Rfam assigns this 474-nucleotide RNA from Novosphingobium guangzhouense to the family "Bacterial RNase P class A".
Taxonomically the source falls in Novosphingobium (Bacteria, Pseudomonadati, Pseudomonadota, Sphingomonadaceae).
The base pairs follow the family's consensus structure, which is taken from published work.
Rfam's curators write: Ribonuclease P (RNase P) is a ubiquitous endoribonuclease, found in archaea, bacteria and eukarya as well as chloroplasts and mitochondria.
By type it is a ribozyme.
[Rfam]
RNA sequence: UCGGGGAGCCGGGCAGCCGCGGGGUCUUUAUGACCGCGAGGAAAGUCCGGGCUCCACGAAACAAGGGUGGCAGGUAACGCCUGCCGGGCGAGGAAGGUUUUCAGGCCUUCCGAAGCUUAGGGAAAGUGCCACAGAGAGCAAACCGCCGCGCUUCGACAGGCUCUUCAUGAGCGGGUCGAAGAAGGUAAGGGUGAAAGGGUGCGGUAAGAGCGCACCGCGCUGCCGGUAACGGUAAGCGGCUUGGUAAACCCCACCCGGAGCAAGACCGAAUAGGGGCUGCGCGUCGGCGUCGCGAAAGCGGGAGAUCGACGGGUUCGUUUCGGACCCAGGCAGCCCGGGUUGGUCGCUUGAGCGAGGCAGCAAUGUCUCGCCUAGAGGAAUGGCUGCCGCCGCGGCGUAAGGUCCCUCGGGCUUCGGCCCAUUUUGGGGAGACCACGCCAGGAACAGAACCCGGCUUACAGGCUCCCCGACGCG
Numbered sequence: 001u002c003g004g005g006g007a008g009c010c011g012g013g014c015a016g017c018c019g020c021g022g023g024g025u026c027u028u029u030a031u032g033a034c035c036g037c038g039a040g041g042a043a044a045g046u047c048c049g050g051g052c053u054c055c056a057c058g059a060a061a062c063a064a065g066g067g068u069g070g071c072a073g074g075u076a077a078c079g080c081c082u083g084c085c086g087g088g089c090g091a092g093g094a095a096g097g098u099u100u101u102c103a104g105g106c107c108u109u110c111c112g113a114a115g116c117u118u119a120g121g122g123a124a125a126g127u128g129c130c131a132c133a134g135a136g137a138g139c140a141a142a143c144c145g146c147c148g149c150g151c152u153u154c155g156a157c158a159g160g161c162u163c164u165u166c167a168u169g170a171g172c173g174g175g176u177c178g179a180a181g182a183a184g185g186u187a188a189g190g191g192u193g194a195a196a197g198g199g200u201g202c203g204g205u206a207a208g209a210g211c212g213c214a215c216c217g218c219g220c221u222g223c224c225g226g227u228a229a230c231g232g233u234a235a236g237c238g239g240c241u242u243g244g245u246a247a248a249c250c251c252c253a254c255c256c257g258g259a260g261c262a263a264g265a266c267c268g269a270a271u272a273g274g275g276g277c278u279g280c281g282c283g284u285c286g287g288c289g290u291c292g293c294g295a296a297a298g299c300g301g302g303a304g305a306u307c308g309a310c311g312g313g314u315u316c317g318u319u320u321c322g323g324a325c326c327c328a329g330g331c332a333g334c335c336c337g338g339g340u341u342g343g344u345c346g347c348u349u350g351a352g353c354g355a356g357g358c359a360g361c362a363a364u365g366u367c368u369c370g371c372c373u374a375g376a377g378g379a380a381u382g383g384c385u386g387c388c389g390c391c392g393c394g395g396c397g398u399a400a401g402g403u404c405c406c407u408c409g410g411g412c413u414u415c416g417g418c419c420c421a422u423u424u425u426g427g428g429g430a431g432a433c434c435a436c437g438c439c440a441g442g443a444a445c446a447g448a449a450c451c452c453g454g455c456u457u458a459c460a461g462g463c464u465c466c467c468c469g470a471c472g473c474g
Stems, first nucleotide, its partner, number of pairs: 001470010011459001012388007020038002023035004043457003047454005052260004061320001063318001065256005070084005085120001086118004121251002126249002128245003143190002145186003152181002198216006217240001218238004223232003264345004274336006312326005352371008